[Rfam]
The family of this 86-nucleotide RNA from Physcomitrium patens is "MIR473 microRNA precursor family". Taxonomically the source falls in Physcomitrium (Eukaryota, Viridiplantae, Funariidae, Funariaceae). Pairs were carried over by alignment from the consensus structure, which was predicted with WAR. The match comes from Rfam's covariance-model search (60 bits).
RNA sequence: GUUGCUUUUUCCUCUCCCUCAAAGGCUUCCAACAUGAUGUGCGUAAGCCACAACGUUAGAAGCCUUUGUGGGAGAGGAAGAAACAA
Numbered sequence: 001g002u003u004g005c006u007u008u009u010u011c012c013u014c015u016c017c018c019u020c021a022a023a024g025g026c027u028u029c030c031a032a033c034a035u036g037a038u039g040u041g042c043g044u045a046a047g048c049c050a051c052a053a054c055g056u057u058a059g060a061a062g063c064c065u066u067u068g069u070g071g072g073a074g075a076g077g078a079a080g081a082a083a084c085a086a
Stems, first nucleotide, its partner, number of pairs: 009079010020068010